drz-agam-2-2 ribozyme: a 187-nucleotide RNA from Anopheles gambiae. A search with the family's covariance model found it, with a score of 154 bits. Its family is annotated with catalytic activity in the Gene Ontology. Pairs were carried over by alignment from the consensus structure, which is taken from published work.
RNA sequence: UUUGGCCCGCGGGCCGGACUUUGCCGAUCGCUGCUCUAGAAGGUUAACAUAGGCUCUCCACCUCCUACUCCUAUUCAAUACGUCCCCGUCGUACAGAACGGUAACAUGUCUCUCAAUUAUCCACGCUUGGGUAUACGGGGAAACCCAACCCCUUGGGCGGAUGGGUUGCAUGGCUAAAUUGAGAGGG
Numbered sequence: 001u002u003u004g005g006c007c008c009g010c011g012g013g014c015c016g017g018a019c020u021u022u023g024c025c026g027a028u029c030g031c032u033g034c035u036c037u038a039g040a041a042g043g044u045u046a047a048c049a050u051a052g053g054c055u056c057u058c059c060a061c062c063u064c065c066u067a068c069u070c071c072u073a074u075u076c077a078a079u080a081c082g083u084c085c086c087c088g089u090c091g092u093a094c095a096g097a098a099c100g101g102u103a104a105c106a107u108g109u110c111u112c113u114c115a116a117u118u119a120u121c122c123a124c125g126c127u128u129g130g131g132u133a134u135a136c137g138g139g140g141a142a143a144c145c146c147a148a149c150c151c152c153u154u155g156g157g158c159g160g161a162u163g164g165g166u167u168g169c170a171u172g173g174c175u176a177a178a179u180u181g182a183g184a185g186g187g
Base pairs, nucleotide, nucleotide: 001097002096003095004094011065012064013062016059017058018057024053025052069187070186071185072184074183075182076181077180078179079178080092081091082090084101085100105172106171107170108169109168112165113164114163119162120161121160122159127148128147129146130145131144132143150157151156